The family of this 235-nucleotide sequence from Sphingomonas sp. Leaf343 is "permuted transfer-messenger RNA". Rfam classes the family as a non-coding RNA gene. On this family, see Williams and Bartel, RNA 1996: "Phylogenetic analysis of tmRNA secondary structure". The base pairs follow the family's consensus structure, which is taken from published work. Bacterial tmRNA, also known as 10Sa RNA or SsrA, is named for its dual tRNA and mRNA-like properties. Its role is to liberate the mRNA from a stalled ribosome.

[Rfam]
RNA sequence: GGCGAUAAAAGGCGGCGCGCAAUAGAUGCAGCGGACCCGGGGGCGGUACCCGGCGGCUCCACCAUUUGCGCCGGCCUGCGGCCCGUUUCGGCGGGCGGCUGGACGGCGCAACUGACGGGGCCGAACUAGGAUCGACGUGUGUUGAAAAACGCUGCUCUUCGCUCGGAAUGGGACCACCGCAACGGCCCAUUACACAAGUGCCAACGAUAACGAAGCACUCGCGAUUGCGGCGUAA
Numbered sequence: 001g002g003c004g005a006u007a008a009a010a011g012g013c014g015g016c017g018c019g020c021a022a023u024a025g026a027u028g029c030a031g032c033g034g035a036c037c038c039g040g041g042g043g044c045g046g047u048a049c050c051c052g053g054c055g056g057c058u059c060c061a062c063c064a065u066u067u068g069c070g071c072c073g074g075c076c077u078g079c080g081g082c083c084c085g086u087u088u089c090g091g092c093g094g095g096c097g098g099c100u101g102g103a104c105g106g107c108g109c110a111a112c113u114g115a116c117g118g119g120g121c122c123g124a125a126c127u128a129g130g131a132u133c134g135a136c137g138u139g140u141g142u143u144g145a146a147a148a149a150c151g152c153u154g155c156u157c158u159u160c161g162c163u164c165g166g167a168a169u170g171g172g173a174c175c176a177c178c179g180c181a182a183c184g185g186c187c188c189a190u191u192a193c194a195c196a197a198g199u200g201c202c203a204a205c206g207a208u209a210a211c212g213a214a215g216c217a218c219u220c221g222c223g224a225u226u227g228c229g230g231c232g233u234a235a
Base pairs, nucleotide, nucleotide: 001163002162003161004160005159014153015152016151017150027141028140029139031138032137033136037053038052039051040050041049054123055122056121057120058119059118060117164179165178166177